[Rfam]
RNA sequence: UGCAACUUCACGGGAGUUGAAAUCCCGUGAAGUUGCAGUCCCAAAUUUCCAGAGACUCGAUCUCUGGCAAAUUGUGGACUGCAACUUCACGGGAUUUCAACUCCCGUGAAGUUGCA
Numbered sequence: 001u002g003c004a005a006c007u008u009c010a011c012g013g014g015a016g017u018u019g020a021a022a023u024c025c026c027g028u029g030a031a032g033u034u035g036c037a038g039u040c041c042c043a044a045a046u047u048u049c050c051a052g053a054g055a056c057u058c059g060a061u062c063u064c065u066g067g068c069a070a071a072u073u074g075u076g077g078a079c080u081g082c083a084a085c086u087u088c089a090c091g092g093g094a095u096u097u098c099a100a101c102u103c104c105c106g107u108g109a110a111g112u113u114g115c116a
Base pairs, nucleotide, nucleotide: 003114004113005112006111007110009108011106012105013104014103015102017100018099019098023094024093025092026091027090028089029088030087033084034083035082036081037080038079039078040077041076
RNA: mir-998 microRNA precursor family